ABC transporter regulator: a 79-nucleotide RNA from Pluralibacter gergoviae. Taxonomically the source falls in Pluralibacter (Bacteria, Pseudomonadati, Pseudomonadota, Enterobacteriaceae). The family's consensus secondary structure is taken from published work.

RNA sequence: UUCACUGUUCGUGAUGUGGUCGUGGCAGUCGUUAUUGUAUUGAUUGCAGGGGGCAAUAUUUUAUUGCCCUUAAAUUUUA
Numbered sequence: 001u002u003c004a005c006u007g008u009u010c011g012u013g014a015u016g017u018g019g020u021c022g023u024g025g026c027a028g029u030c031g032u033u034a035u036u037g038u039a040u041u042g043a044u045u046g047c048a049g050g051g052g053g054c055a056a057u058a059u060u061u062u063a064u065u066g067c068c069c070u071u072a073a074a075u076u077u078u079a
Base pairs, nucleotide, nucleotide: 025047026046027045028044029043030042031041049071050070051069052068053067054066055065056064057063058062